Rfam assigns this 145-nucleotide sequence from Neorhizobium galegae to the family "Alphaproteobacterial sRNA ar7". A search with the family's covariance model found it, with a score of 107 bits. It is annotated as a small RNA. The source organism's lineage runs through Bacteria, Hyphomicrobiales, Neorhizobium, Neorhizobium galegae and Neorhizobium galegae bv. orientalis.
RNA sequence: UACCGGCGAUUGAUCACGCCGCAGUCUGGCAGUCGGCCUGUCCCCCGCCGCACCCAGACCGGACAAAGGCCUAUCCCCCUCUCCGGGCCUUUGUCCCUCCAUCAGAACCGCCACGGCUGUCCCCUCCCUGCCGUGGCGGUUUUUU
Numbered sequence: 001u002a003c004c005g006g007c008g009a010u011u012g013a014u015c016a017c018g019c020c021g022c023a024g025u026c027u028g029g030c031a032g033u034c035g036g037c038c039u040g041u042c043c044c045c046c047g048c049c050g051c052a053c054c055c056a057g058a059c060c061g062g063a064c065a066a067a068g069g070c071c072u073a074u075c076c077c078c079c080u081c082u083c084c085g086g087g088c089c090u091u092u093g094u095c096c097c098u099c100c101a102u103c104a105g106a107a108c109c110g111c112c113a114c115g116g117c118u119g120u121c122c123c124c125u126c127c128c129u130g131c132c133g134u135g136g137c138g139g140u141u142u143u144u145u
Stems, first nucleotide, its partner, number of pairs: 025058005035049003061096011105141001108139010119128001
Dot-bracket structure: ........................(((((.....(((.........)))....)))))..(((((((((((..............)))))))))))........(..((((((((((.(........).)))))))))).)....